[Rfam]
RNA sequence: GUGGAAGGGGCAUGCAGAGGAGCUGGAGAUUGUUCAGUUGGAAGCUGGUCUUCACUUCUCCCCUCCUCUCUCCUGUGCUUGCCUCUUCCAUU
Dot-bracket structure: ((((((((((((.(((.(((((..(..........................................).))))).))).)))))))))))).
Shown here is a 92-nucleotide RNA from Zizania palustris, a member of the family "MIR528 microRNA precursor family".
The base pairs follow the family's consensus structure, which was predicted with RNAalifold.
Gene Ontology terms of the family: miRNA-mediated post-transcriptional gene silencing and RISC complex.
Rfam 15.1 lists 41 matches to the family in 33 species.